The family of this 171-nucleotide RNA from Allobacillus sp. SKP2-8 is "Lysine riboswitch aptamer".
RNA sequence: UGAUGGGGUAGAGGCGCAGUUAACAAAAGUAAGUUAUGCGAGGGUGACACCGAUGACCAUAAACGAAAGGGUUAAUUGCCGAAGUAUGAUUGCAGUCACGGCAUUCAUGCUGGAAUGUACUUGAAGAAAGUGCAUUCUCUCGUACCGAAAUAACGGGGAGCUACAGAUCGG
Numbered sequence: 001u002g003a004u005g006g007g008g009u010a011g012a013g014g015c016g017c018a019g020u021u022a023a024c025a026a027a028a029g030u031a032a033g034u035u036a037u038g039c040g041a042g043g044g045u046g047a048c049a050c051c052g053a054u055g056a057c058c059a060u061a062a063a064c065g066a067a068a069g070g071g072u073u074a075a076u077u078g079c080c081g082a083a084g085u086a087u088g089a090u091u092g093c094a095g096u097c098a099c100g101g102c103a104u105u106c107a108u109g110c111u112g113g114a115a116u117g118u119a120c121u122u123g124a125a126g127a128a129a130g131u132g133c134a135u136u137c138u139c140u141c142g143u144a145c146c147g148a149a150a151u152a153a154c155g156g157g158g159a160g161c162u163a164c165a166g167a168u169c170g171g
Stems, first nucleotide, its partner, number of pairs: 008164004016079009034062005083111007091103003112138011140156004
NCBI's taxonomy places the organism under Bacteria, Bacillati, Bacilli, Bacillaceae, Allobacillus.